[Rfam]
RNA: Plant signal recognition particle RNA
RNA sequence: GCCGAGCUAAGUAGCACUAGCUUGUGACUCGAGCGAGGGCAUUAUGGUGGCCGGACAAUCGUUCGAUCCAUUUAGACAGGUUCAGUGAGCUACCCUUGCUUGCUUGCCCGGUCCAAGUUGUGAGUUGGGUAAUGCAGCCCAAGCAAAGGCUUGGGCUUUAUGGCUCGUAGAGUGGAGGACACAGCGUCAGCCUCGUUUCACAGAGCGGUGAUAACCUCCCGCUCUCGACAGGAUUACAAGCCAGUGCACUCUUGGGGCAUAUUGCUUGGUGACUCGAUUACAUUGAACAACCAUUUUU
Numbered sequence: 001g002c003c004g005a006g007c008u009a010a011g012u013a014g015c016a017c018u019a020g021c022u023u024g025u026g027a028c029u030c031g032a033g034c035g036a037g038g039g040c041a042u043u044a045u046g047g048u049g050g051c052c053g054g055a056c057a058a059u060c061g062u063u064c065g066a067u068c069c070a071u072u073u074a075g076a077c078a079g080g081u082u083c084a085g086u087g088a089g090c091u092a093c094c095c096u097u098g099c100u101u102g103c104u105u106g107c108c109c110g111g112u113c114c115a116a117g118u119u120g121u122g123a124g125u126u127g128g129g130u131a132a133u134g135c136a137g138c139c140c141a142a143g144c145a146a147a148g149g150c151u152u153g154g155g156c157u158u159u160a161u162g163g164c165u166c167g168u169a170g171a172g173u174g175g176a177g178g179a180c181a182c183a184g185c186g187u188c189a190g191c192c193u194c195g196u197u198u199c200a201c202a203g204a205g206c207g208g209u210g211a212u213a214a215c216c217u218c219c220c221g222c223u224c225u226c227g228a229c230a231g232g233a234u235u236a237c238a239a240g241c242c243a244g245u246g247c248a249c250u251c252u253u254g255g256g257g258c259a260u261a262u263u264g265c266u267u268g269g270u271g272a273c274u275c276g277a278u279u280a281c282a283u284u285g286a287a288c289a290a291c292c293a294u295u296u297u298u
Stems, first nucleotide, its partner, number of pairs: 001040003004023006028037003044297001046295005053288001056285004061279001063277004069271004074266002079258001081256005087250001089249001093246001099244002102241005108232002117229004122224004127166004132161003136157009174219005183212001185210003192203002